[Rfam]
RNA sequence: AACAUGCUCCUUAGAUCCACCUCUGGAGGGUUCUCCUGUGCUGGUGCUGUCGUCGCUCUCUGAGUGCUUCAACUCCAGCCCGGAGGCCCUCAGCAGCUUUCUGGCUGUACAGUUGGAGGUGCUUGAGUCAUUGGUGUGUGAGAGCAGUCUACCUGCCCCCCCCAGCCCCACUGCUGCCCUGGCAACCCUCAGUCCUACUGGGGGGAUUCUACCAGCGCAGCUAGGCUGGGGGGCGGACAAC
Numbered sequence: 001a002a003c004a005u006g007c008u009c010c011u012u013a014g015a016u017c018c019a020c021c022u023c024u025g026g027a028g029g030g031u032u033c034u035c036c037u038g039u040g041c042u043g044g045u046g047c048u049g050u051c052g053u054c055g056c057u058c059u060c061u062g063a064g065u066g067c068u069u070c071a072a073c074u075c076c077a078g079c080c081c082g083g084a085g086g087c088c089c090u091c092a093g094c095a096g097c098u099u100u101c102u103g104g105c106u107g108u109a110c111a112g113u114u115g116g117a118g119g120u121g122c123u124u125g126a127g128u129c130a131u132u133g134g135u136g137u138g139u140g141a142g143a144g145c146a147g148u149c150u151a152c153c154u155g156c157c158c159c160c161c162c163c164a165g166c167c168c169c170a171c172u173g174c175u176g177c178c179c180u181g182g183c184a185a186c187c188c189u190c191a192g193u194c195c196u197a198c199u200g201g202g203g204g205g206a207u208u209c210u211a212c213c214a215g216c217g218c219a220g221c222u223a224g225g226c227u228g229g230g231g232g233g234c235g236g237a238c239a240a241c
Stems, first nucleotide, its partner, number of pairs: 002139007010127005018121008026091005034084003040079004046073001048071002052067001054066004093108006153236005162229001164227004175219003179215004193204003